This 100-nucleotide sequence from Patiriisocius marinus belongs to the Rfam family "Flavo-1 RNA". By type it is a small RNA. The match comes from Rfam's covariance-model search (54 bits). Lineage of the source: Bacteria > Bacteroidota > Flavobacteriia > Flavobacteriaceae > Patiriisocius.
Nucleotides: 100
Base pairs, nucleotide, nucleotide: 012092013091014090016088017087021083022082026078027077028076032073033072034071035070036069038067039066040065041064042063043062044061045060
Number, partner (000 for none) and nucleotide at each position: 001000u002000u003000a004000u005000u006000g007000c008000g009000u010000u011000a012092a013091g014090g015000a016088u017087a018000g019000a020000a021083g022082u023000g024000a025000a026078a027077a028076u029000c030000c031000u032073u033072u034071u035070u036069a037000a038067u039066a040065u041064c042063a043062c044061a045060u046000a047000g048000a049000g050000c051000g052000u053000a054000u055000g056000c057000g058000a059000a060045a061044u062043g063042u064041g065040g066039u067038a068000c069036u070035a071034a072033a073032a074000a075000a076028a077027u078026u079000g080000a081000a082022a083021c084000g085000g086000a087017u088016a089000g090014c091013c092012u093000g094000u095000u096000a097000a098000a099000a100000c